[Rfam]
RNA sequence: GGAUCAAAUGAUGAGUCUGAGAGACCAACAACAUGAUGGAUUCGUUCCAUGAUUCCUCGUAUUAAAGUCUCUGAUGAUC
Numbered sequence: 001g002g003a004u005c006a007a008a009u010g011a012u013g014a015g016u017c018u019g020a021g022a023g024a025c026c027a028a029c030a031a032c033a034u035g036a037u038g039g040a041u042u043c044g045u046u047c048c049a050u051g052a053u054u055c056c057u058c059g060u061a062u063u064a065a066a067g068u069c070u071c072u073g074a075u076g077a078u079c
Stems, first nucleotide, its partner, number of pairs: 001079002004077003038048003
Shown here is a 79-nucleotide RNA sequence from Theobroma umbraticum, a member of the family "Small nucleolar RNA Z199". NCBI's taxonomy places the organism under Eukaryota, Streptophytina, Mesangiospermae, Pentapetalae, Theobroma. snoZ199 is a C/D box small nucleolar RNA, which acts as a methylation guide RNA for sites on 18S and 25S rRNA. Rice snoZ199 is reported to be homologous to Arabidopsis snoR13. It scores 65 bits against the family's covariance model. The base pairs follow the family's consensus structure, which was predicted with PFOLD. On this family, see Chen et al., Nucleic Acids Res 2003: "The high diversity of snoRNAs in plants: identification and comparative study of 120 snoRNA genes from Oryza sativa".